The record is an 84-nucleotide RNA from Clostridium paridis, which matches "skipping-rope RNA" in Rfam.
RNA sequence: UUGGUUUGAGGUCGGAAAUGGCUCCCGACACGCUGCUGAAAAGUAGUUAUCAGAGAUACAGGAUACGCCGCCCUGUCAAUCCAA
Number, nucleotide and partner (000 for none) at each position: 001u084002u083003g082004g081005u000006u079007u078008g077009a000010g000011g029012u028013c027014g026015g025016a000017a000018a000019u070020g069021g068022c067023u000024c000025c015026c014027g013028a012029c011030a000031c053032g047033c046034u045035g044036c043037u042038g000039a000040a000041a000042a037043g036044u035045a034046g033047u032048u000049a000050u000051c000052a000053g031054a000055g000056a000057u000058a076059c075060a074061g073062g072063a000064u000065a000066c000067g022068c021069c020070g019071c000072c062073c061074u060075g059076u058077c008078a007079a006080u000081c004082c003083a002084a001